[Rfam]
RNA: Ruegeria cis52 sRNA
RNA sequence: UGCGGAGCGCGUGUUUCAGGACCACUUGGCGGAAGGGAACGCCCUUGAGGAUCGCAGUGCGGAUAUAUUGCUGCUGCAUGACCUCCGCCAUGGAGGCGCGCGUCAUCCGUGCGAUGUAGCCCAUGCCGUAGAGCGCGAUGGUGAUGACCGGCAGAAAGAAAUUCUCGAAGGUUGCGUUC
Numbered sequence: 001u002g003c004g005g006a007g008c009g010c011g012u013g014u015u016u017c018a019g020g021a022c023c024a025c026u027u028g029g030c031g032g033a034a035g036g037g038a039a040c041g042c043c044c045u046u047g048a049g050g051a052u053c054g055c056a057g058u059g060c061g062g063a064u065a066u067a068u069u070g071c072u073g074c075u076g077c078a079u080g081a082c083c084u085c086c087g088c089c090a091u092g093g094a095g096g097c098g099c100g101c102g103u104c105a106u107c108c109g110u111g112c113g114a115u116g117u118a119g120c121c122c123a124u125g126c127c128g129u130a131g132a133g134c135g136c137g138a139u140g141g142u143g144a145u146g147a148c149c150g151g152c153a154g155a156a157a158g159a160a161a162u163u164c165u166c167g168a169a170g171g172u173u174g175c176g177u178u179c
Base pairs, nucleotide, nucleotide: 006139008137009136010135011134012133014131015130016128019126021124029122031120040111041110042109046105047104048103050101053098054097055076056075057074058073059071060070061069062068082096083095084094085093086092146178147177149174150173151172152171154165156163157162